Rfam assigns this 74-nucleotide sequence from Globodera rostochiensis to the family "mir-87 microRNA precursor family". The organism belongs to Globodera, within Eukaryota. Rfam 15.1 lists 420 matches to the family in 285 species. Pairs were carried over by alignment from the consensus structure, which was predicted with RNAalifold.
RNA sequence: UGCUCGCCGCCUGGGACUUCGACUCAACCUUAUGCUAUUAGGUUAGGUGAGCAAAGUUUCAGGUGUGCGAGCAU
Numbered sequence: 001u002g003c004u005c006g007c008c009g010c011c012u013g014g015g016a017c018u019u020c021g022a023c024u025c026a027a028c029c030u031u032a033u034g035c036u037a038u039u040a041g042g043u044u045a046g047g048u049g050a051g052c053a054a055a056g057u058u059u060c061a062g063g064u065g066u067g068c069g070a071g072c073a074u
Base pairs, nucleotide, nucleotide: 002072003071004070005069006068007067008065009064010063011062012061013060014059016057017056018055019054023051024050025049026048028047029046030045